[Rfam]
RNA sequence: ACUGUACUGAGAUGCAUCGACGCUUGCCCUGUAUACGGUCACCUGGGUCAAGCCGAGCGAAUGGUGAGCCCGACUCAAUGGAGA
Number, nucleotide and partner (000 for none) at each position: 001a000002c083003u082004g000005u080006a079007c000008u077009g076010a075011g074012a000013u059014g058015c057016a000017u000018c000019g000020a000021c000022g053023c052024u051025u050026g049027c000028c047029c046030u000031g000032u000033a000034u000035a000036c000037g071038g070039u067040c066041a065042c064043c063044u000045g000046g029047g028048u000049c026050a025051a024052g023053c022054c000055g000056a000057g015058c014059g013060a000061a000062u000063g043064g042065u041066g040067a039068g000069c000070c038071c037072g000073a000074c011075u010076c009077a008078a000079u006080g005081g000082a003083g002084a000

Source information: A member of the RNA family "c-di-GMP-II-GCG riboswitch aptamer" from Deinococcus deserti, 84 nucleotides long. On this family, see Weinberg et al., Proc Natl Acad Sci U S A 2017: "Bioinformatic analysis of riboswitch structures uncovers variant classes with altered ligand specificity". Its Rfam clan is "c-di-GMP_II riboswitch clan". Its family is annotated with cyclic-di-GMP binding and regulation of gene expression in the Gene Ontology. Taxonomically the source falls in Deinococcus deserti (Bacteria, Deinococcota, Deinococci, Deinococcaceae). The base pairs follow the family's consensus structure, which is taken from published work.